Rfam assigns this 141-nucleotide RNA from Tolumonas auensis to the family "radC RNA". NCBI's taxonomy places the organism under Bacteria, Aeromonadales, Aeromonadaceae, Tolumonas, Tolumonas auensis. The family's RNA type in Rfam is cis-regulatory element. The match comes from Rfam's covariance-model search (68 bits).

RNA sequence: GUUGUCGGGCCUGCAUCGCUGAUUCGUCAGCCGUUGCCAGCAGCCAAGGUCGUGCAGGCUGCGUCGCGGACCCUCCGCGCCGACCGUCCUUGUCCGCAUCGCAUCGUGCCGCGGACACGCGCCCAUCCCGGGCGUCGAUGC
Numbered sequence: 001g002u003u004g005u006c007g008g009g010c011c012u013g014c015a016u017c018g019c020u021g022a023u024u025c026g027u028c029a030g031c032c033g034u035u036g037c038c039a040g041c042a043g044c045c046a047a048g049g050u051c052g053u054g055c056a057g058g059c060u061g062c063g064u065c066g067c068g069g070a071c072c073c074u075c076c077g078c079g080c081c082g083a084c085c086g087u088c089c090u091u092g093u094c095c096g097c098a099u100c101g102c103a104u105c106g107u108g109c110c111g112c113g114g115a116c117a118c119g120c121g122c123c124c125a126u127c128c129c130g131g132g133c134g135u136c137g138a139u140g141c
Stems, first nucleotide, its partner, number of pairs: 011036001013034002018031005040062006048085004063081001065079005111141003119135006